The record is a 139-nucleotide sequence from Cohnella cholangitidis, which matches "c-di-AMP riboswitch aptamer (ydaO/yuaA leader)" in Rfam. Lineage of the source: Bacteria > Bacillati > Bacillota > Bacilli > Cohnella.
[Rfam]
RNA sequence: AUUUAGAGUACGCUUAGUUCUCGACCUGUAAGGGGAGAGAAGCGGGGGAACCAGUCAUUAGGGGCGAAUCAUUCUUAGGAAUGAAGGGUACCAUCUACCCGAGUCCGUCAGCUAACCUCGUCAGCAGCAGAUGGGUCUG
Numbered sequence: 001a002u003u004u005a006g007a008g009u010a011c012g013c014u015u016a017g018u019u020c021u022c023g024a025c026c027u028g029u030a031a032g033g034g035g036a037g038a039g040a041a042g043c044g045g046g047g048g049a050a051c052c053a054g055u056c057a058u059u060a061g062g063g064g065c066g067a068a069u070c071a072u073u074c075u076u077a078g079g080a081a082u083g084a085a086g087g088g089u090a091c092c093a094u095c096u097a098c099c100c101g102a103g104u105c106c107g108u109c110a111g112c113u114a115a116c117c118u119c120g121u122c123a124g125c126a127g128c129a130g131a132u133g134g135g136u137c138u139g
Stems, first nucleotide, its partner, number of pairs: 012125003018041005042121006052061001062106003070083004086100004